[Rfam]
RNA sequence: GUGCGUGUGAGGAGUGCGGAACGCCCUUCGGGGUCGAAACGAGGACAGACUCCCGCAAUCGUUCCUCAC
Numbered sequence: 001g002u003g004c005g006u007g008u009g010a011g012g013a014g015u016g017c018g019g020a021a022c023g024c025c026c027u028u029c030g031g032g033g034u035c036g037a038a039a040c041g042a043g044g045a046c047a048g049a050c051u052c053c054c055g056c057a058a059u060c061g062u063u064c065c066u067c068a069c
Stems, first nucleotide, its partner, number of pairs: 019064005027058001030054003033050003